[Rfam]
RNA sequence: AUAUGCAUUGGCAAUGGGGUUUGCCUUCUCGGUCAACGAGAGAACCGCCUGAUUAUUUCGGUGCUGAUAACUCCUAUUGGUAC
Numbered sequence: 001a002u003a004u005g006c007a008u009u010g011g012c013a014a015u016g017g018g019g020u021u022u023g024c025c026u027u028c029u030c031g032g033u034c035a036a037c038g039a040g041a042g043a044a045c046c047g048c049c050u051g052a053u054u055a056u057u058u059c060g061g062u063g064c065u066g067a068u069a070a071c072u073c074c075u076a077u078u079g080g081u082a083c
Stems, first nucleotide, its partner, number of pairs: 010025004016074006047064002049061004
Rfam assigns this 83-nucleotide RNA sequence from Pedosphaera parvula to the family "Fluoride riboswitch aptamer (crcB RNA motif)". The organism belongs to Pedosphaera parvula, within Bacteria. It is one of the family's seed sequences.